[Rfam]
The record is an 80-nucleotide RNA from Anaerosporobacter mobilis, which matches "c-di-GMP-I riboswitch aptamer" in Rfam.
From the family's description: GEMM was predicted in a large-scale screen for bacterial structured RNA regulatory elements.
The family's consensus secondary structure is taken from published work.
A search with the family's covariance model found it, with a score of 65 bits.
RNA sequence: AUAUUUUUCAGGCAAACUUAUUGAAAAAUAAGGACGCAAAGCUAUAGGGCCGUUAAAGGGGACGGCAGCCAGUUGCAAGA
Number, nucleotide and partner (000 for none) at each position: 001a000002u000003a000004u000005u000006u000007u000008u000009c000010a000011g000012g037013c036014a000015a000016a000017c032018u031019u030020a029021u028022u027023g000024a000025a000026a000027a022028a021029u020030a019031a018032g017033g000034a000035c000036g013037c012038a000039a000040a074041g073042c072043u071044a000045u000046a000047g070048g069049g066050c065051c064052g063053u062054u061055a000056a000057a000058g000059g000060g000061g054062a053063c052064g051065g050066c049067a000068g000069c048070c047071a043072g042073u041074u040075g000076c000077a000078a000079g000080a000